[Rfam]
RNA sequence: UCGAUCGUGAGGUCGAAUCUGAAGGAAGUUGGCGGCAAAUCUCUGGCCCGAGGAACACGAACCACAUAUAAGGCUAACGCUCGUUGGAUGAGGCUGCCAAACAAGUCAAAGUCCAUACUGCCAAAGGCGGGCGGGAGUAAAUGAGGCGGGUAGAUGGAGAGGAAGAUAGCGUU
Number, nucleotide and partner (000 for none) at each position: 001u016002c015003g014004a013005u012006c011007g000008u000009g000010a000011g006012g005013u004014c003015g002016a001017a000018u000019c000020u000021g000022a000023a000024g000025g000026a000027a000028g173029u000030u171031g170032g000033c000034g000035g000036c165037a000038a000039a000040u160041c159042u158043c157044u156045g155046g151047c150048c149049c148050g147051a000052g000053g000054a000055a000056c000057a000058c000059g000060a000061a000062c146063c145064a000065c143066a142067u141068a000069u000070a000071a000072g000073g138074c137075u136076a000077a000078c133079g132080c131081u130082c129083g128084u000085u000086g114087g113088a112089u111090g000091a000092g107093g106094c105095u104096g000097c000098c000099a000100a000101a000102c000103a000104a095105g094106u093107c092108a000109a000110a000111g089112u088113c087114c086115a000116u000117a000118c000119u000120g000121c000122c000123a000124a000125a000126g000127g000128c083129g082130g081131g080132c079133g078134g000135g000136a075137g074138u073139a000140a000141a067142u066143g065144a000145g063146g062147c050148g049149g048150g047151u046152a000153g000154a000155u045156g044157g043158a042159g041160a040161g000162g000163a000164a000165g036166a000167u000168a000169g000170c031171g030172u000173u028

Notes
The record is a 173-nucleotide RNA sequence from Paenibacillus donghaensis, which matches "Group II catalytic intron D1-D4-3" in Rfam. Lineage of the source: Bacteria > Bacillati > Bacillota > Bacilli > Paenibacillus.